A member of the RNA family "SAH (S-adenosyl-L-homocysteine) riboswitch aptamer" from Massilia sp. NR 4-1, 73 nucleotides long.
Gene Ontology terms of the family: regulation of gene expression and S-adenosylhomocysteine metabolic process.
RNA sequence: UUCUCCGAGGAGCGUUGCGACGAAUCGCCCGAUUCGCCAGGCUCGGAUACUUCUGCAACCGCGCUCACGUUAC
Numbered sequence: 001u002u003c004u005c006c007g008a009g010g011a012g013c014g015u016u017g018c019g020a021c022g023a024a025u026c027g028c029c030c031g032a033u034u035c036g037c038c039a040g041g042c043u044c045g046g047a048u049a050c051u052u053c054u055g056c057a058a059c060c061g062c063g064c065u066c067a068c069g070u071u072a073c
Base pairs, nucleotide, nucleotide: 002049004047005046006045007044008043021036022035023034024033025032026031
Taxonomically the source falls in Massilia (Bacteria, Pseudomonadati, Pseudomonadota, Burkholderiales).